[Rfam]
RNA sequence: UAAACUCUGUAUGACUGGCGGAUAGUGGGAAAAACCCACAGGGAUUACAGAGUUAAAAGCCGACCGCCUGGGCGAAUAGA
Number, nucleotide and partner (000 for none) at each position: 001u000002a000003a054004a053005c052006u051007c050008u049009g048010u047011a046012u000013g000014a000015c042016u041017g068018g067019c066020g065021g064022a000023u000024a000025g000026u038027g037028g036029g035030a000031a000032a000033a000034a000035c029036c028037c027038a026039c000040a000041g016042g015043g000044a000045u000046u011047a010048c009049a008050g007051a006052g005053u004054u003055a000056a000057a000058a000059g073060c072061c071062g000063a000064c021065c020066g019067c018068c017069u000070g000071g061072g060073c059074g000075a000076a000077u000078a000079g000080a000